[Rfam]
RNA: Flavo-1 RNA
RNA sequence: GAUUUGCGUGAGGGAUUGUAGUGGAGCUCUUUUUUGGCGCCUUUUUUGAAGGUGCCAAAAAAAGCGGGAACAGAAAGCCCGACCCAAA
Numbered sequence: 001g002a003u004u005u006g007c008g009u010g011a012g013g014g015a016u017u018g019u020a021g022u023g024g025a026g027c028u029c030u031u032u033u034u035u036g037g038c039g040c041c042u043u044u045u046u047u048g049a050a051g052g053u054g055c056c057a058a059a060a061a062a063a064g065c066g067g068g069a070a071c072a073g074a075a076a077g078c079c080c081g082a083c084c085c086a087a088a
Stems, first nucleotide, its partner, number of pairs: 012080003016076002021071002026065003032060012